[Rfam]
The record is a 102-nucleotide sequence from Pseudomonas pohangensis, which matches "Pseudomon-Rho RNA" in Rfam.
The family's consensus secondary structure is taken from published work.
RNA sequence: UUCCGGCUCGCAACCCUUGCUGCGGUUGCUUCCUGCAAGCCGUCGCCGACGCCCCCACAAUAGCUUCCCGAAGCGCCCAGAGUGCUUCCCGCGCGCCGCGGC
Number, nucleotide and partner (000 for none) at each position: 001u000002u000003c000004c000005g000006g000007c000008u000009c000010g029011c028012a027013a026014c025015c024016c000017u000018u000019g000020c000021u000022g000023c000024g015025g014026u013027u012028g011029c010030u000031u000032c000033c000034u000035g000036c000037a000038a000039g102040c101041c100042g099043u000044c098045g097046c000047c095048g094049a000050c000051g000052c000053c000054c000055c000056c000057a000058c000059a000060a000061u000062a000063g000064c000065u000066u000067c000068c000069c000070g000071a000072a000073g085074c084075g083076c082077c000078c000079a000080g000081a000082g076083u075084g074085c073086u000087u000088c000089c000090c000091g000092c000093g000094c048095g047096c000097c045098g044099c042100g041101g040102c039